The family of this 215-nucleotide RNA from Chenopodium quinoa is "Plant small nucleolar RNA U3". The base pairs follow the family's consensus structure, which is taken from published work. The match comes from Rfam's covariance-model search (183 bits).

[Rfam]
RNA sequence: ACGACCUUACUUGAACAGGAUCUGUUCUAUAGGAUCGUACCUCUGUAUCCUUGAGUUCUAAGGAGACAGAAAACCAAGUCUGGUGGAUGAAUUAUGACCGUACGAUCAGAGCGUGAUAAACGGCCACCGUCGAUCUUCGGAUCACCGGUACUAUAGAGGAUCGUUCCUCAGCUCCUCUGUGAGCCGGGGAUGGUCGCACGGUUGUCUGACAGACU
Numbered sequence: 001a002c003g004a005c006c007u008u009a010c011u012u013g014a015a016c017a018g019g020a021u022c023u024g025u026u027c028u029a030u031a032g033g034a035u036c037g038u039a040c041c042u043c044u045g046u047a048u049c050c051u052u053g054a055g056u057u058c059u060a061a062g063g064a065g066a067c068a069g070a071a072a073a074c075c076a077a078g079u080c081u082g083g084u085g086g087a088u089g090a091a092u093u094a095u096g097a098c099c100g101u102a103c104g105a106u107c108a109g110a111g112c113g114u115g116a117u118a119a120a121c122g123g124c125c126a127c128c129g130u131c132g133a134u135c136u137u138c139g140g141a142u143c144a145c146c147g148g149u150a151c152u153a154u155a156g157a158g159g160a161u162c163g164u165u166c167c168u169c170a171g172c173u174c175c176u177c178u179g180u181g182a183g184c185c186g187g188g189g190a191u192g193g194u195c196g197c198a199c200g201g202u203u204g205u206c207u208g209a210c211a212g213a214c215u
Base pairs, nucleotide, nucleotide: 001038002037003035005033006032007031013027014026015025016024017023018022043069044068045067046066048064049063050062051061052060053059078214079213080212081211082210097202098201099200100199101198103196104195105194106193107192108191110165111164112163113162120154122152123151126149127148128147129146132143133142134141135140167188168187169186171184172183173182174181
Notes:
On this family, see Marz and Stadler, RNA Biol 2010: "Comparative analysis of eukaryotic U3 snoRNA". NCBI's taxonomy places the organism under Eukaryota, Viridiplantae, Spermatophyta, Amaranthaceae, Chenopodium. The family has 24 seed sequences and 3,759 matches in Rfam 15.1. From the family's description: Small nucleolar RNAs (snoRNAs) are involved in the processing and modification of rRNA in the nucleolus. There are two main classes of snoRNAs: the box C/D class, and the box H/ACA class. U3 snoRNA is a member of the box C/D class. Indeed, the box C/D element is a subset of the six short sequence elements found in all U3 snoRNAs, namely boxes A, A', B, C, C', and D. The U3 snoRNA secondary structure is characterised by a small 5' domain (with boxes A and A'), and a larger 3' domain (with boxes B, C, C', and D), the two domains being linked by a single-stranded hinge. Boxes B and C form the B/C motif, which appears to be exclusive to U3 snoRNAs, and boxes C' and D form the C'/D motif. The latter is functionally similar to the C/D motifs found in other snoRNAs. The 5' domain and the hinge region act as a pre-rRNA-binding domain. The 3' domain has conserved protein-binding sites. Both the box B/C and box C'/D motifs are sufficient for nuclear retention of U3 snoRNA. The box C'/D motif is also necessary for nucleolar localisation, stability and hyper-methylation of U3 snoRNA. Both box B/C and C'/D motifs are involved in specific protein interactions and are necessary for the rRNA processing functions of U3 snoRNA.